[Rfam]
RNA sequence: UAAAAUCUUCGGGGCAGGGUGAAAUUCCCGACCGACGGUAUGCGCCCAUGGGGCGACGAGUCCGUGACCCGCGUGAGCGGUGGAUGCCGGUGUGAUUCCGGAACCGACAGUAAAGUCUGGAUGGGAGAAGAUGACA
Numbered sequence: 001u002a003a004a005a006u007c008u009u010c011g012g013g014g015c016a017g018g019g020u021g022a023a024a025u026u027c028c029c030g031a032c033c034g035a036c037g038g039u040a041u042g043c044g045c046c047c048a049u050g051g052g053g054c055g056a057c058g059a060g061u062c063c064g065u066g067a068c069c070c071g072c073g074u075g076a077g078c079g080g081u082g083g084a085u086g087c088c089g090g091u092g093u094g095a096u097u098c099c100g101g102a103a104c105c106g107a108c109a110g111u112a113a114a115g116u117c118u119g120g121a122u123g124g125g126a127g128a129a130g131a132u133g134a135c136a
Stems, first nucleotide, its partner, number of pairs: 005132006017029003031116002033106002035065004060104002069080002085102001087101004108119003
RNA: FMN riboswitch aptamer (RFN element)
Organism: Natribacillus halophilus